[Rfam]
Nucleotides: 065
Base pairs, nucleotide, nucleotide: 010025011024012023013022016056017055018054019053020052021051033046034045035044036043
Number, partner (000 for none) and nucleotide at each position: 001000u002000g003000u004000g005000c006000c007000a008000c009000a010025g011024g012023c013022g014000a015000u016056g017055g018054g019053a020052c021051u022013c023012g024011c025010c026000u027000u028000c029000a030000a031000c032000c033046g034045c035044a036043g037000g038000u039000c040000c041000u042000c043036c044035u045034g046033c047000u048000g049000a050000c051021g052020g053019u054018c055017c056016c057000u058000g059000u060000u061000u062000c063000g064000g065000u
Record summary:
The family of this 65-nucleotide RNA from Actinomycetospora cinnamomea is "Fluoride riboswitch aptamer (crcB RNA motif)". Gene Ontology terms of the family: positive regulation of gene expression and response to fluoride. Taxonomically the source falls in Actinomycetospora (Bacteria, Bacillati, Actinomycetota, Pseudonocardiaceae).